[Rfam]
RNA sequence: ACUUAGCCUAUACACUAUGUUGGAGAGAAGACGCUUGCUACCUAGGCAAAAUGUGAGAUUAGGUAUAAACAUCGUGUUGUGAGACUUGAGGUGGUUUUUAGUACGUAUGCGUGAUUACUUCGUAAUCAUGAAUCGUGCAUGCUAGUGGGUUGGCUCACUAGUAUCUUGAAGAUUUCGUCUCAGCGAUC
Numbered sequence: 001a002c003u004u005a006g007c008c009u010a011u012a013c014a015c016u017a018u019g020u021u022g023g024a025g026a027g028a029a030g031a032c033g034c035u036u037g038c039u040a041c042c043u044a045g046g047c048a049a050a051a052u053g054u055g056a057g058a059u060u061a062g063g064u065a066u067a068a069a070c071a072u073c074g075u076g077u078u079g080u081g082a083g084a085c086u087u088g089a090g091g092u093g094g095u096u097u098u099u100a101g102u103a104c105g106u107a108u109g110c111g112u113g114a115u116u117a118c119u120u121c122g123u124a125a126u127c128a129u130g131a132a133u134c135g136u137g138c139a140u141g142c143u144a145g146u147g148g149g150u151u152g153g154c155u156c157a158c159u160a161g162u163a164u165c166u167u168g169a170a171g172a173u174u175u176c177g178u179c180u181c182a183g184c185g186a187u188c
Stems, first nucleotide, its partner, number of pairs: 039065006071187005087182005101138005110130009140163006
Rfam assigns this 188-nucleotide RNA from Drosophila persimilis to the family "R2 RNA element". Its family is annotated with regulation of reverse transcription in the Gene Ontology. This family represents the 3' UTR region of the R2 retrotransposable element. This family is known to interact with the R2-encoded reverse transcriptase in a reaction known as target primed reverse transcription (TPRT). The match comes from Rfam's covariance-model search (136 bits). By type it is a cis-regulatory element. NCBI's taxonomy places the organism under Eukaryota, Brachycera, Drosophilinae, Drosophila, Sophophora.